[Rfam]
RNA: Bacterial RNase P class A
RNA sequence: GCGGAGGGUUGGAUGAUCGCGGCGGCAACGUCGAGGAAAGUCCGGACUCCAGAAAGACACGGCGCCGGGUAACGCCCGGCCGGGGUAACCCGAGGGACAGCGCCACAGAGAACAGACCCCCCGGUUGCGGCCGGGGAAGGGUGAAACGGUGGGGUAAGAGCCCACCGCCGGGCUGGUAACAGACCGGGCAUGGCAAGCCCCGCCGGGAGCAAGGCCGAAUAGGAAUCGCGUGGGCCUUCGGGUCCGGGGCUGCUUUCGCCCCGACGAUUCGGGUUGGCUGCUUGAGGCCACGUGUAAACGUGUGCCCAGAGGAAUGAUCAUUCAGGGAAGGCCUCAGGCCCUCCUGGACAGAAUCCGGCUUAUAGACCCUCCGCACAU
Numbered sequence: 001g002c003g004g005a006g007g008g009u010u011g012g013a014u015g016a017u018c019g020c021g022g023c024g025g026c027a028a029c030g031u032c033g034a035g036g037a038a039a040g041u042c043c044g045g046a047c048u049c050c051a052g053a054a055a056g057a058c059a060c061g062g063c064g065c066c067g068g069g070u071a072a073c074g075c076c077c078g079g080c081c082g083g084g085g086u087a088a089c090c091c092g093a094g095g096g097a098c099a100g101c102g103c104c105a106c107a108g109a110g111a112a113c114a115g116a117c118c119c120c121c122c123g124g125u126u127g128c129g130g131c132c133g134g135g136g137a138a139g140g141g142u143g144a145a146a147c148g149g150u151g152g153g154g155u156a157a158g159a160g161c162c163c164a165c166c167g168c169c170g171g172g173c174u175g176g177u178a179a180c181a182g183a184c185c186g187g188g189c190a191u192g193g194c195a196a197g198c199c200c201c202g203c204c205g206g207g208a209g210c211a212a213g214g215c216c217g218a219a220u221a222g223g224a225a226u227c228g229c230g231u232g233g234g235c236c237u238u239c240g241g242g243u244c245c246g247g248g249g250c251u252g253c254u255u256u257c258g259c260c261c262c263g264a265c266g267a268u269u270c271g272g273g274u275u276g277g278c279u280g281c282u283u284g285a286g287g288c289c290a291c292g293u294g295u296a297a298a299c300g301u302g303u304g305c306c307c308a309g310a311g312g313a314a315u316g317a318u319c320a321u322u323c324a325g326g327g328a329a330g331g332c333c334u335c336a337g338g339c340c341c342u343c344c345u346g347g348a349c350a351g352a353a354u355c356c357g358g359c360u361u362a363u364a365g366a367c368c369c370u371c372c373g374c375a376c377a378u
Stems, first nucleotide, its partner, number of pairs: 001374010011363001012322007020033005038361003042358005047209004055255002058252001060205005065079005080094001081092004095200002100198002102194003117140002119136007148166006167189001168187004173182003213279004223270006246262005286305001289302005